[Rfam]
The family of this 75-nucleotide RNA from Branchiostoma floridae is "mir-10 microRNA precursor family".

RNA sequence: CUAUAUGUACCCUGUAGAUCCGAAUUUGUGUGAGGUACCCAAGUCACAAAUUCGUUUCUGCAGGUAUAAUGUAGC
Numbered sequence: 001c002u003a004u005a006u007g008u009a010c011c012c013u014g015u016a017g018a019u020c021c022g023a024a025u026u027u028g029u030g031u032g033a034g035g036u037a038c039c040c041a042a043g044u045c046a047c048a049a050a051u052u053c054g055u056u057u058c059u060g061c062a063g064g065u066a067u068a069a070u071g072u073a074g075c
Stems, first nucleotide, its partner, number of pairs: 002073005007067001010064002016059003021054010
About this RNA:
The literature on the family includes a 2001 paper in Science by Lee and Ambros, "An extensive class of small RNAs in Caenorhabditis elegans". The base pairs follow the family's consensus structure, which was predicted with PFOLD.